This 131-nucleotide RNA from Chelydra serpentina belongs to the Rfam family "Small nucleolar RNA SNORA68".
On this family, see Ganot et al., Genes Dev 1997: "The family of box ACA small nucleolar RNAs is defined by an evolutionarily conserved secondary structure and ubiquitous sequence elements essential for RNA accumulation".
Pairs were carried over by alignment from the consensus structure, which was predicted with PFOLD.
It scores 106 bits against the family's covariance model.
U68 is a member of the H/ACA class of small nucleolar RNAs (snoRNAs) which act as guides in the the modification of uridines to pseudouridines.
Rfam links the family to the GO terms nucleolus and RNA processing.
The family's RNA type in Rfam is H/ACA-box small nucleolar RNA.

[Rfam]
RNA sequence: AGUGCACACAAAAACCCAAAGAAUAUUAUUUUUAGUAAUAGUGUUCUUGUCAUGUGUGCAAAUAGCAAUGUACCUUGUCGCCUUUCAAGAGCUGAUGUGCUUUUGAAAGUGAAACUGAAGGUCCAACAUAA
Numbered sequence: 001a002g003u004g005c006a007c008a009c010a011a012a013a014a015c016c017c018a019a020a021g022a023a024u025a026u027u028a029u030u031u032u033u034a035g036u037a038a039u040a041g042u043g044u045u046c047u048u049g050u051c052a053u054g055u056g057u058g059c060a061a062a063u064a065g066c067a068a069u070g071u072a073c074c075u076u077g078u079c080g081c082c083u084u085u086c087a088a089g090a091g092c093u094g095a096u097g098u099g100c101u102u103u104u105g106a107a108a109g110u111g112a113a114a115c116u117g118a119a120g121g122u123c124c125a126a127c128a129u130a131a
Stems, first nucleotide, its partner, number of pairs: 003060007021046010070124001072122005082109011